[Rfam]
RNA: c-di-AMP riboswitch aptamer (ydaO/yuaA leader)
RNA sequence: CUCAAUAUUCGGCCUAGUCUCGGAAACGAGAACGGAGGAACCAAUCAACAGGGGUUAAUUCUGCUAUUGCAGAAGGGAUGAGAUUCAAACUCUUUCGCCAUCCUACCCGUCAGCUAACUUCGUCGGCUAAAGCGAAGGAGGUC
Numbered sequence: 001c002u003c004a005a006u007a008u009u010c011g012g013c014c015u016a017g018u019c020u021c022g023g024a025a026a027c028g029a030g031a032a033c034g035g036a037g038g039a040a041c042c043a044a045u046c047a048a049c050a051g052g053g054g055u056u057a058a059u060u061c062u063g064c065u066a067u068u069g070c071a072g073a074a075g076g077g078a079u080g081a082g083a084u085u086c087a088a089a090c091u092c093u094u095u096c097g098c099c100a101u102c103c104u105a106c107c108c109g110u111c112a113g114c115u116a117a118c119u120u121c122g123u124c125g126g127c128u129a130a131a132g133c134g135a136a137g138g139a140g141g142u143c
Stems, first nucleotide, its partner, number of pairs: 011128004018031003032123006042051001052108003060073004076103004